[Rfam]
RNA sequence: AGCAAAAUGAAGAGGUCAUAUGAUCUGAAGUGAUGUUGAUACACCCAUCCAUGGUCUUCAAAGUUCUGUGAUUGCU
Numbered sequence: 001a002g003c004a005a006a007a008u009g010a011a012g013a014g015g016u017c018a019u020a021u022g023a024u025c026u027g028a029a030g031u032g033a034u035g036u037u038g039a040u041a042c043a044c045c046c047a048u049c050c051a052u053g054g055u056c057u058u059c060a061a062a063g064u065u066c067u068g069u070g071a072u073u074g075c076u
Stems, first nucleotide, its partner, number of pairs: 001076005
RNA: Small nucleolar RNA R160
Organism: Miscanthus lutarioriparius